The family of this 122-nucleotide RNA sequence from Macaca nemestrina is "Small nucleolar RNA SNORA38". By type it is an H/ACA-box small nucleolar RNA. Rfam describes the family as follows. ACA38 is a member of the H/ACA class of snoRNA that guide the sites of modification of uridines to pseudouridines. The base pairs follow the family's consensus structure, which was predicted with RNAfold. Gene Ontology terms of the family: RNA processing, nucleolus and Cajal body.

[Rfam]
RNA sequence: ACUCCUAACAAAGGCAUUCUAUAUUCUGCUUGACAUGUAAUAAAUUGAGGCAAAGAAAAAUUGGACAUUGGAAGAAAUCUGGCCAGCUUGCUCCCCGCAGGCUCAAACAACCUUCCACAUAG
Numbered sequence: 001a002c003u004c005c006u007a008a009c010a011a012a013g014g015c016a017u018u019c020u021a022u023a024u025u026c027u028g029c030u031u032g033a034c035a036u037g038u039a040a041u042a043a044a045u046u047g048a049g050g051c052a053a054a055g056a057a058a059a060a061u062u063g064g065a066c067a068u069u070g071g072a073a074g075a076a077a078u079c080u081g082g083c084c085a086g087c088u089u090g091c092u093c094c095c096c097g098c099a100g101g102c103u104c105a106a107a108c109a110a111c112c113u114u115c116c117a118c119a120u121a122g
Base pairs, nucleotide, nucleotide: 002050003049005047015037016036017035018033019032063116064115065114067113085103086102087101088100089099090098091097